A member of the RNA family "Small nucleolar RNA SNORD121A" from Nycticryphes semicollaris, 84 nucleotides long. The literature on the family includes a 2006 paper in Nucleic Acids Res by Yang et al., "snoSeeker: an advanced computational package for screening of guide and orphan snoRNA genes in the human genome". The source organism's lineage runs through Eukaryota, Opisthokonta, Archelosauria, Neoaves and Nycticryphes.

RNA sequence: GUCCAAAAUGCAGUGAUGUUUUCUUUUCCAAGCGCGUACCUGAUUGCUCUGUGUGGAAAAUGACUGUUGCUGAGUGUUUUGGCU
Numbered sequence: 001g002u003c004c005a006a007a008a009u010g011c012a013g014u015g016a017u018g019u020u021u022u023c024u025u026u027u028c029c030a031a032g033c034g035c036g037u038a039c040c041u042g043a044u045u046g047c048u049c050u051g052u053g054u055g056g057a058a059a060a061u062g063a064c065u066g067u068u069g070c071u072g073a074g075u076g077u078u079u080u081g082g083c084u
Stems, first nucleotide, its partner, number of pairs: 001084001003082004008077004